[Rfam]
RNA sequence: GAAAGUCCUGCAGGGGCGACCUGAGAACACAUGAAGCACAUAUAGUAACACGAAUGCUUUUUAUCCAGCUCAUGUGGUCUCAUGUCGCUCCUGUUGGGCCCCU
Numbered sequence: 001g002a003a004a005g006u007c008c009u010g011c012a013g014g015g016g017c018g019a020c021c022u023g024a025g026a027a028c029a030c031a032u033g034a035a036g037c038a039c040a041u042a043u044a045g046u047a048a049c050a051c052g053a054a055u056g057c058u059u060u061u062u063a064u065c066c067a068g069c070u071c072a073u074g075u076g077g078u079c080u081c082a083u084g085u086c087g088c089u090c091c092u093g094u095u096g097g098g099c100c101c102c103u
Base pairs, nucleotide, nucleotide: 007097008096011093012092013091014090016088017087018086019085023081024080025079026078028076029075030074031073032072
RNA: MIR398 microRNA precursor family
Organism: Nyssa sinensis